[Rfam]
RNA sequence: CUGAACUGCUGCGCUGAUGGGCGGCAACGCCCACACUGAACUGCGGAGUGCGCCGGUUAUAUGGAGUAUGACCGGGGUGCUGAUCCCGCUAAAGUCGGCCGAAUGUGUCUAAGUCCUUCGGGAUAUGAUGCAGAUAGGCCGGGUGUCGGAUAG
Number, nucleotide and partner (000 for none) at each position: 001c000002u000003g000004a000005a000006c000007u000008g000009c000010u000011g000012c000013g000014c000015u000016g000017a000018u033019g032020g031021g030022c029023g028024g000025c000026a000027a000028c023029g022030c021031c020032c019033a018034c145035a144036c143037u142038g000039a000040a000041c000042u000043g089044c088045g087046g086047a081048g080049u079050g078051c077052g000053c075054c074055g073056g072057u071058u070059a069060u068061a000062u000063g000064g000065a000066g000067u000068a060069u059070g058071a057072c056073c055074g054075g053076g000077g051078u050079g049080c048081u047082g000083a000084u000085c000086c046087c045088g044089c043090u000091a000092a000093a000094g000095u000096c141097g140098g139099c138100c137101g000102a000103a000104u132105g131106u130107g129108u128109c127110u000111a000112a000113g000114u122115c121116c000117u000118u000119c000120g000121g115122g114123a000124u000125a000126u000127g109128a108129u107130g106131c105132a104133g000134a000135u000136a000137g100138g099139c098140c097141g096142g037143g036144u035145g034146u000147c000148g000149g000150a000151u000152a000153g000
RNA: Group II catalytic intron D1-D4-5
Organism: Vescimonas coprocola